[Rfam]
RNA sequence: GGUUUUAACCCAAGUUAACCAAGGUUAGCAUCAAAUUCGACCUUUCUUUGAAAGAAGAAUGUGUUGAAAGUGUUCGUAACUUUUGGAACCGCUUUUCCGGGGUUUCCGGAGAAGCAAA
Numbered sequence: 001g002g003u004u005u006u007a008a009c010c011c012a013a014g015u016u017a018a019c020c021a022a023g024g025u026u027a028g029c030a031u032c033a034a035a036u037u038c039g040a041c042c043u044u045u046c047u048u049u050g051a052a053a054g055a056a057g058a059a060u061g062u063g064u065u066g067a068a069a070g071u072g073u074u075c076g077u078a079a080c081u082u083u084u085g086g087a088a089c090c091g092c093u094u095u096u097c098c099g100g101g102g103u104u105u106c107c108g109g110a111g112a113a114g115c116a117a118a
Base pairs, nucleotide, nucleotide: 007037008036014029015028017026018025019024038066039065040064041063042061044059045058046057047056048055049054093116095114096113098111101107102106

Shown here is a 118-nucleotide sequence from Caenorhabditis japonica, a member of the family "SL2 RNA". From the family's description: This family represents SL2 RNA. SL2 RNA is involved in trans splicing in lower eukaryotes. The match comes from Rfam's covariance-model search (72 bits). It is annotated as a non-coding RNA gene.